This 87-nucleotide sequence from Mesobacillus subterraneus belongs to the Rfam family "c-di-GMP-I riboswitch aptamer".
RNA sequence: UACAGAAAAAGGCAAACUUGUUGAAAAACUAGGACGCAAAGUCACGGAUCUAAGGUGCAAAAGCACUAUGAUGGCCGGGCCGCCUGG
Numbered sequence: 001u002a003c004a005g006a007a008a009a010a011g012g013c014a015a016a017c018u019u020g021u022u023g024a025a026a027a028a029c030u031a032g033g034a035c036g037c038a039a040a041g042u043c044a045c046g047g048a049u050c051u052a053a054g055g056u057g058c059a060a061a062a063g064c065a066c067u068a069u070g071a072u073g074g075c076c077g078g079g080c081c082g083c084c085u086g087g
Base pairs, nucleotide, nucleotide: 012037013036017032018031020029021028022027041080042079043078045077046076047075048072049071050070055066056065057064058063
Annotation: NCBI's taxonomy places the organism under Bacteria, Bacillati, Bacilli, Caryophanales, Mesobacillus. It scores 80 bits against the family's covariance model.